The family of this 75-nucleotide RNA from Propithecus coquereli is "mir-320 microRNA precursor family". For this family Rfam cites "Many novel mammalian microRNA candidates identified by extensive cloning and RAKE analysis" (Berezikov et al., Genome Res, 2006). A search with the family's covariance model found it, with a score of 69 bits. Pairs were carried over by alignment from the consensus structure, which was predicted with RNAalifold. Rfam 15.1 lists 659 matches to the family in 129 species. The organism belongs to Propithecus, within Eukaryota.
RNA sequence: AAAUUAUGAGACCUUCUCCUCCUGGUUUUUCCAGAGUGGAGAAAAGCUGGGUUGAGAAGGUAAAAAAAAAAUUAA
Dot-bracket structure: .............(((((..(((((..(((.(......).)))...)))))..))))).................